[Rfam]
RNA sequence: AGCGAGGAUAGAGGCGCAAAAACCAUCAGUACGCAAUCCGAGGAGUAUGAGCUCUUAAGAAGAUUGCCGAAAGGGGGAUUUGCCGAAGCGGCAGGAUGCUCAUAUUCCUGUGCGCUGGUUCUGCACUGAAGAAGUGUCGGACUGUCAUAUAGGAAACUAUAUGGAGGGCUAUCUGACGA
Dot-bracket structure: .....((((((....(((((..((........((((((.......................)))))).......))..)))))...((((((((((.........)))))).))))(((((.(((((.....))))).))))).(((((((......)))))))....)))))).....

Rfam assigns this 179-nucleotide RNA sequence from Planococcus rifietoensis to the family "Lysine riboswitch aptamer". The base pairs follow the family's consensus structure, which is taken from published work. NCBI's taxonomy places the organism under Bacteria, Bacillota, Bacilli, Caryophanaceae, Planococcus. About the family: Riboswitches are metabolite binding domains within certain messenger RNAs that serve as precision sensors for their corresponding targets. Allosteric rearrangement of mRNA structure is mediated by ligand binding, and this results in modulation of gene expression. This family includes riboswitches that sense lysine in a number of genes involved in lysine metabolism, including lysC. A search with the family's covariance model found it, with a score of 120 bits.